[Rfam]
RNA sequence: AGCGUGAGUGAUGAAAACUCGACCUUAGGUAGGUCUUUUUUUUUGGACUGUUUUGGUUCAAAUGCUUGGGACUUGCCAAUGUUAGGACUUGUCAUAGUUACUCUGACACGCU
Dot-bracket structure: ((((((....................................................................................................))))))
Source information: Small nucleolar RNA SNORD46: a 112-nucleotide RNA from Labrus bergylta. Rfam classes the family as a C/D-box small nucleolar RNA. The pairing is the family consensus, mapped onto this sequence. Clan: SNORD46 clan.